[Rfam]
RNA sequence: UGCUUGAUGCCACGUUACCAAUAGUGUUCAUUAGAAUUCUUUGACUGGUAAUGCUACAUUGGGCGUAUAACAAACGUUGAAUUUGUUUCUCUGUGUUUCGCAUUUUGAUAGGAACCUGUGGAUUUCGCCCUGUCACUUUCCACGGCGCCGUUUUGUGCGAUUAUAUUA
Numbered sequence: 001u002g003c004u005u006g007a008u009g010c011c012a013c014g015u016u017a018c019c020a021a022u023a024g025u026g027u028u029c030a031u032u033a034g035a036a037u038u039c040u041u042u043g044a045c046u047g048g049u050a051a052u053g054c055u056a057c058a059u060u061g062g063g064c065g066u067a068u069a070a071c072a073a074a075c076g077u078u079g080a081a082u083u084u085g086u087u088u089c090u091c092u093g094u095g096u097u098u099c100g101c102a103u104u105u106u107g108a109u110a111g112g113a114a115c116c117u118g119u120g121g122a123u124u125u126c127g128c129c130c131u132g133u134c135a136c137u138u139u140c141c142a143c144g145g146c147g148c149c150g151u152u153u154u155g156u157g158c159g160a161u162u163a164u165a166u167u168a
Stems, first nucleotide, its partner, number of pairs: 002064008013053006020046001022044001024039001026037004098160005111149002116145003120141003